[Rfam]
RNA sequence: CGAGCAACUGUCUAGGGUUCCGUUGGUGAGCAAUUCUUCCAUCAAGCAGGUCCGAGAGACGGUGUGCGGCUUGCGCUGCAUAACACGGAAGGAUAAAAGCCUGGGAGAU
Numbered sequence: 001c002g003a004g005c006a007a008c009u010g011u012c013u014a015g016g017g018u019u020c021c022g023u024u025g026g027u028g029a030g031c032a033a034u035u036c037u038u039c040c041a042u043c044a045a046g047c048a049g050g051u052c053c054g055a056g057a058g059a060c061g062g063u064g065u066g067c068g069g070c071u072u073g074c075g076c077u078g079c080a081u082a083a084c085a086c087g088g089a090a091g092g093a094u095a096a097a098a099g100c101c102u103g104g105g106a107g108a109u
Stems, first nucleotide, its partner, number of pairs: 007063006015053002020050002022047001023045006064081007084104001086107001090102003

A member of the RNA family "Guanidine-I riboswitch aptamer" from Paenibacillus montanisoli, 109 nucleotides long.
This family represents a conserved RNA structure found upstream of the ykkC and yxkD genes in Bacillus subtilis and related genes in other bacteria. The function of this family is unclear although it has been suggested that it may function to switch on efflux pumps and detoxification systems in response to harmful environmental molecules.
Gene Ontology term of the family: regulation of gene expression.
It scores 72 bits against the family's covariance model.